[Rfam]
RNA sequence: CUCCUCCUAUCUUGGCACUGUUGCAAGUAAAUUUGCAAUUGAGUGUAUGCUAAUUGGAGGUAAAUUAUUUCGAGUUAUACCUUCGGUGUCUUUUCUAAUUUAUGGAUUAGAUCCUAUCCUCUAAACUCGAAACAAUU
Numbered sequence: 001c002u003c004c005u006c007c008u009a010u011c012u013u014g015g016c017a018c019u020g021u022u023g024c025a026a027g028u029a030a031a032u033u034u035g036c037a038a039u040u041g042a043g044u045g046u047a048u049g050c051u052a053a054u055u056g057g058a059g060g061u062a063a064a065u066u067a068u069u070u071c072g073a074g075u076u077a078u079a080c081c082u083u084c085g086g087u088g089u090c091u092u093u094u095c096u097a098a099u100u101u102a103u104g105g106a107u108u109a110g111a112u113c114c115u116a117u118c119c120u121c122u123a124a125a126c127u128c129g130a131a132a133c134a135a136u137u
Stems, first nucleotide, its partner, number of pairs: 003060005009054002015046004021038004069131008085115002089111003094106002

This 137-nucleotide RNA sequence from Meloidogyne incognita belongs to the Rfam family "Nematode snoRNA ceN88". Rfam 15.1 lists 99 matches to the family in 51 species. It is annotated as an H/ACA-box small nucleolar RNA.